[Rfam]
RNA sequence: ACCUGUUGCGGGUGGCAGCUGAGGGUGCCCGCAACUCAAGACAGAACACCGUGCCACGGGAACAAACGGGGCACUUCAGGGCGUU
Numbered sequence: 001a002c003c004u005g006u007u008g009c010g011g012g013u014g015g016c017a018g019c020u021g022a023g024g025g026u027g028c029c030c031g032c033a034a035c036u037c038a039a040g041a042c043a044g045a046a047c048a049c050c051g052u053g054c055c056a057c058g059g060g061a062a063c064a065a066a067c068g069g070g071g072c073a074c075u076u077c078a079g080g081g082c083g084u085u
Stems, first nucleotide, its partner, number of pairs: 005035010016023001051074005057068002